[Rfam]
RNA: S. aureus tsr24 small RNA
Organism: Staphylococcus aureus
RNA sequence: AUAUCAUUUUGAGGAAUUCUAACAGAGGUUUCUAUUGGUAGUGUAAGUUGGGCAAAGUGUCUUAUUUUUUAAAGUAUGUAAAAGUAAAAUUACAUGUUAAUACGUAGUAUUAAUGGCGAGACUCCUGAGGGAGCAGUGCCAGUCGAAGACCGAGGCUGAGACGGCACCCUAGGAAAGCGAAGCCAUUCAAUACGAAGUAUUGUAUAAAUAGAGAACAGCAG
Numbered sequence: 001a002u003a004u005c006a007u008u009u010u011g012a013g014g015a016a017u018u019c020u021a022a023c024a025g026a027g028g029u030u031u032c033u034a035u036u037g038g039u040a041g042u043g044u045a046a047g048u049u050g051g052g053c054a055a056a057g058u059g060u061c062u063u064a065u066u067u068u069u070u071a072a073a074g075u076a077u078g079u080a081a082a083a084g085u086a087a088a089a090u091u092a093c094a095u096g097u098u099a100a101u102a103c104g105u106a107g108u109a110u111u112a113a114u115g116g117c118g119a120g121a122c123u124c125c126u127g128a129g130g131g132a133g134c135a136g137u138g139c140c141a142g143u144c145g146a147a148g149a150c151c152g153a154g155g156c157u158g159a160g161a162c163g164g165c166a167c168c169c170u171a172g173g174a175a176a177g178c179g180a181a182g183c184c185a186u187u188c189a190a191u192a193c194g195a196a197g198u199a200u201u202g203u204a205u206a207a208a209u210a211g212a213g214a215a216c217a218g219c220a221g
Stems, first nucleotide, its partner, number of pairs: 012033007034060002039055001041053002044050002075199003079195001084093003094105004107193005112187006123174004128170004133165002136162002140158005
Dot-bracket structure: ...........(((((((........)))))))((...(.((.((...)).)).)...))..............(((.(....(((....)))((((....)))).(((((((((((.....((((.((((.((.((..(((((.........)))))..)).)).)))))))).......)))))).))))).).)))......................